[Rfam]
Annotation:
Shown here is a 47-nucleotide RNA sequence from Acanthaster planci, a member of the family "Histone 3' UTR stem-loop". The match comes from Rfam's covariance-model search (35 bits). A reference for the family is Williams and Marzluff (1995), "The sequence of the stem and flanking sequences at the 3' end of histone mRNA are critical determinants for the binding of the stem-loop binding protein", Nucleic Acids Res.

Nucleotides: 047
Base pairs, nucleotide, nucleotide: 006021007020008019009018010017011016
Number, partner (000 for none) and nucleotide at each position: 001000c002000a003000a004000c005000c006021g007020g008019c009018u010017c011016u012000u013000u014000u015000c016011a017010g018009a019008g020007c021006c022000a023000c024000a025000a026000a027000u028000c029000u030000u031000g032000a033000a034000a035000g036000a037000g038000c039000a040000g041000a042000u043000u044000c045000u046000a047000u